[Rfam]
RNA: MIR1520 microRNA precursor family
Organism: Glycine max
RNA sequence: UUCUUAUUGGAUGAUGACGGUUUCAUGUCAUGUUCUAAUUGGUCAAUGAAAACAACAAUGCAUUUCAUCUUUCAUAUAGUUGACAUCCAAUCAAAACAUGACUCGUGGUAAUCAUCAUCC
Numbered sequence: 001u002u003c004u005u006a007u008u009g010g011a012u013g014a015u016g017a018c019g020g021u022u023u024c025a026u027g028u029c030a031u032g033u034u035c036u037a038a039u040u041g042g043u044c045a046a047u048g049a050a051a052a053c054a055a056c057a058a059u060g061c062a063u064u065u066c067a068u069c070u071u072u073c074a075u076a077u078a079g080u081u082g083a084c085a086u087c088c089a090a091u092c093a094a095a096a097c098a099u100g101a102c103u104c105g106u107g108g109u110a111a112u113c114a115u116c117a118u119c120c
Stems, first nucleotide, its partner, number of pairs: 020109003029100003033096002036093001038091005